[Rfam]
RNA sequence: AAACCGCACCCACCCACGUACGGCAGGAGCGGGGGACCCAGGUAAGCGCCGAUCCGGCAUCCGGAACGGCUUGGGGUGAAGUCGCGCUCACCGCGGCCGGGCAUCUCCAGCCCGAACCCGACAGCUCACCUCGCAGGCGACGGAGAGGAAUUUG
Numbered sequence: 001a002a003a004c005c006g007c008a009c010c011c012a013c014c015c016a017c018g019u020a021c022g023g024c025a026g027g028a029g030c031g032g033g034g035g036a037c038c039c040a041g042g043u044a045a046g047c048g049c050c051g052a053u054c055c056g057g058c059a060u061c062c063g064g065a066a067c068g069g070c071u072u073g074g075g076g077u078g079a080a081g082u083c084g085c086g087c088u089c090a091c092c093g094c095g096g097c098c099g100g101g102c103a104u105c106u107c108c109a110g111c112c113c114g115a116a117c118c119c120g121a122c123a124g125c126u127c128a129c130c131u132c133g134c135a136g137g138c139g140a141c142g143g144a145g146a147g148g149a150a151u152u153u154g
Base pairs, nucleotide, nucleotide: 007139009137010136015027029134030133031132032131033130034129039073040072041071042070043069074119075118076117082096083095084094085093099113100112101111102110
c-di-AMP riboswitch aptamer (ydaO/yuaA leader): a 154-nucleotide sequence from Streptomyces sp. ISL-98. The match comes from Rfam's covariance-model search (67 bits). NCBI's taxonomy places the organism under Bacteria, Bacillati, Actinomycetes, Streptomycetaceae, Streptomyces.